[Rfam]
RNA sequence: GUUGCUUCUUAUGGUGAACUCUCUCGUAGUAAUACAAAAAGAAUGAGGGAUGUUCAAGUUUCCGAAGCAUAAAUCAAAAUGUCAGUAUUAAACAGCGUGGUGCACUUUCAAUUGCAUCUUGCUACCUGUCUCCUGCUACAUUA
Numbered sequence: 001g002u003u004g005c006u007u008c009u010u011a012u013g014g015u016g017a018a019c020u021c022u023c024u025c026g027u028a029g030u031a032a033u034a035c036a037a038a039a040a041g042a043a044u045g046a047g048g049g050a051u052g053u054u055c056a057a058g059u060u061u062c063c064g065a066a067g068c069a070u071a072a073a074u075c076a077a078a079a080u081g082u083c084a085g086u087a088u089u090a091a092a093c094a095g096c097g098u099g100g101u102g103c104a105c106u107u108u109c110a111a112u113u114g115c116a117u118c119u120u121g122c123u124a125c126c127u128g129u130c131u132c133c134u135g136c137u138a139c140a141u142u143a
Stems, first nucleotide, its partner, number of pairs: 003069006015056005020050007081137001083135003087131001094123003099118004
Dot-bracket structure: ..((((((......((((((((((((.................))))))).))))).......))))))...........(.(((.(......(((..((((............))))..))).......).))).)......
A member of the RNA family "small nucleolar RNA snoR137" from Nicotiana attenuata, 143 nucleotides long. It is annotated as an H/ACA-box small nucleolar RNA.